[Rfam]
RNA sequence: ACCAAUGAUGUUACAAUCCAACAUGUGAGGGCUGUAGUUUAGCCAAGACCCUCUUUUGAGGGAGAUCCUACUUAGUGUGGCUACAUUUUCUAUUACAACAAAGGUUGUUCUCAGGU
Numbered sequence: 001a002c003c004a005a006u007g008a009u010g011u012u013a014c015a016a017u018c019c020a021a022c023a024u025g026u027g028a029g030g031g032c033u034g035u036a037g038u039u040u041a042g043c044c045a046a047g048a049c050c051c052u053c054u055u056u057u058g059a060g061g062g063a064g065a066u067c068c069u070a071c072u073u074a075g076u077g078u079g080g081c082u083a084c085a086u087u088u089u090c091u092a093u094u095a096c097a098a099c100a101a102a103g104g105u106u107g108u109u110c111u112c113a114g115g116u
Stems, first nucleotide, its partner, number of pairs: 001116003049062005
This 116-nucleotide RNA sequence from Glycine max belongs to the Rfam family "Small nucleolar RNA Z278".
It scores 44 bits against the family's covariance model.
By type it is a C/D-box small nucleolar RNA.
Rfam describes the family as follows. snoZ278 is a C/D box small nucleolar RNA. Its methylation guide targets have not been reported.
On this family, see Chen et al., Nucleic Acids Res 2003: "The high diversity of snoRNAs in plants: identification and comparative study of 120 snoRNA genes from Oryza sativa".
Gene Ontology terms of the family: RNA processing and nucleolus.